[Rfam]
RNA: Plastid-ycf2 5UTR RNA
Organism: Protea cynaroides
RNA sequence: GUGCAUCCAGCAGGAAUUAAAUCUACGAAUUUGCCAAUUAUGAGUUGGGUGCUUCAACCAUUUAGCCAUGGUUGC
Number, nucleotide and partner (000 for none) at each position: 001g000002u000003g075004c074005a073006u000007c071008c070009a000010g026011c000012a024013g023014g022015a000016a000017u000018u000019a000020a000021a000022u014023c013024u012025a000026c010027g000028a000029a000030u000031u000032u000033g000034c000035c000036a000037a000038u000039u000040a069041u068042g067043a000044g066045u065046u064047g063048g062049g061050u060051g059052c000053u000054u000055c000056a000057a000058c000059c051060a050061u049062u048063u047064a046065g045066c044067c042068a041069u040070g008071g007072u000073u005074g004075c003